[Rfam]
RNA sequence: AGGCUGUAGCCAAAUUAAUUAACGUGGAAGUAAAACUGGUCGGGUUGCCAAUUGAUUCCAUGGGCAUUCUGCUUACCGAACUUCCCAUAUGU
Numbered sequence: 001a002g003g004c005u006g007u008a009g010c011c012a013a014a015u016u017a018a019u020u021a022a023c024g025u026g027g028a029a030g031u032a033a034a035a036c037u038g039g040u041c042g043g044g045u046u047g048c049c050a051a052u053u054g055a056u057u058c059c060a061u062g063g064g065c066a067u068u069c070u071g072c073u074u075a076c077c078g079a080a081c082u083u084c085c086c087a088u089a090u091g092u
Stems, first nucleotide, its partner, number of pairs: 026085006038073003042069004047065003
Notes
The family of this 92-nucleotide sequence from Oryza sativa is "Small nucleolar RNA snoR109". A search with the family's covariance model found it, with a score of 43 bits.